The record is a 162-nucleotide sequence from Plasmodium gonderi, which matches "small nucleolar RNA snoR26" in Rfam. The match comes from Rfam's covariance-model search (61 bits). Its family is annotated with nucleolus and RNA processing in the Gene Ontology. A reference for the family is Chakrabarti et al. (2007), "Structural RNAs of known and unknown function identified in malaria parasites by comparative genomics and RNA analysis", RNA. NCBI's taxonomy places the organism under Eukaryota, Sar, Apicomplexa, Haemosporida, Plasmodium.
RNA sequence: UAUGCCUUAAAUAAAUGAUUAUGUUCAUGAUACCAUAAAAUUAUGAGAAAUAUUUUAUUAUAGGCUAAAAAAAAAAAAAAAAAAAAUUGUCACUGAUAAAACGAGUUACGCAUUAAUCACAAGUUGCUGAUUCACCUGACUUUGACACAUUUACAUAGUCAU
Numbered sequence: 001u002a003u004g005c006c007u008u009a010a011a012u013a014a015a016u017g018a019u020u021a022u023g024u025u026c027a028u029g030a031u032a033c034c035a036u037a038a039a040a041u042u043a044u045g046a047g048a049a050a051u052a053u054u055u056u057a058u059u060a061u062a063g064g065c066u067a068a069a070a071a072a073a074a075a076a077a078a079a080a081a082a083a084a085a086a087u088u089g090u091c092a093c094u095g096a097u098a099a100a101a102c103g104a105g106u107u108a109c110g111c112a113u114u115a116a117u118c119a120c121a122a123g124u125u126g127c128u129g130a131u132u133c134a135c136c137u138g139a140c141u142u143u144g145a146c147a148c149a150u151u152u153a154c155a156u157a158g159u160c161a162u
Stems, first nucleotide, its partner, number of pairs: 016161008